Shown here is an 88-nucleotide sequence from Nezara viridula, a member of the family "Small nucleolar RNA SNORD34". The organism belongs to Nezara, within Eukaryota. Rfam describes the family as follows. snoRNA U34 is found in intron 5 of the ribosomal protein L13a gene in humans. By type it is a C/D-box small nucleolar RNA. Rfam 15.1 lists 1,319 matches to the family in 583 species. Gene Ontology terms of the family: nucleolus and RNA processing.
[Rfam]
RNA sequence: GAGCAUUAAUGAUGAUUACCAAUUUUAACCUUACCUACAUUAUUUGAUUUAUAAAUGAAAAAAAAAAAAUAAAAGUUCUGAAAUGCUC
Numbered sequence: 001g002a003g004c005a006u007u008a009a010u011g012a013u014g015a016u017u018a019c020c021a022a023u024u025u026u027a028a029c030c031u032u033a034c035c036u037a038c039a040u041u042a043u044u045u046g047a048u049u050u051a052u053a054a055a056u057g058a059a060a061a062a063a064a065a066a067a068a069a070u071a072a073a074a075g076u077u078c079u080g081a082a083a084u085g086c087u088c
Stems, first nucleotide, its partner, number of pairs: 001088002004085004